[Rfam]
RNA sequence: ACUAUCGUGAGAUAGCGGGGAGAGGAAGGGAUAGCGCAAUCGUGGCUCUACGAACAGAAACGUGAUAUCAAGGCGUAUAUAGGGGAUGAGGAGACCCAAAACUCUAAAGUCCAAAAAGGUAGUCGUAACCGAUGUGCGUAAAUCACGAGAGUAAUUGAAUUCGGACUAAGGUCUGUGUG
Numbered sequence: 001a002c003u004a005u006c007g008u009g010a011g012a013u014a015g016c017g018g019g020g021a022g023a024g025g026a027a028g029g030g031a032u033a034g035c036g037c038a039a040u041c042g043u044g045g046c047u048c049u050a051c052g053a054a055c056a057g058a059a060a061c062g063u064g065a066u067a068u069c070a071a072g073g074c075g076u077a078u079a080u081a082g083g084g085g086a087u088g089a090g091g092a093g094a095c096c097c098a099a100a101a102c103u104c105u106a107a108a109g110u111c112c113a114a115a116a117a118g119g120u121a122g123u124c125g126u127a128a129c130c131g132a133u134g135u136g137c138g139u140a141a142a143u144c145a146c147g148a149g150a151g152u153a154a155u156u157g158a159a160u161u162c163g164g165a166c167u168a169a170g171g172u173c174u175g176u177g178u179g
Base pairs, nucleotide, nucleotide: 002015003014004013005012006011029178031176032175034172035171040165041164044161045152046151047150048149049148061147062146063145064144065143066142073139074138075137077135078134079133080132082130083129084112085111086110087109090105091104092103093102
Shown here is a 179-nucleotide RNA sequence from Streptococcus hillyeri, a member of the family "Group II catalytic intron D1-D4-3". Gene Ontology term of the family: Group II intron splicing. It scores 90 bits against the family's covariance model. NCBI's taxonomy places the organism under Bacteria, Bacillati, Bacilli, Streptococcaceae, Streptococcus.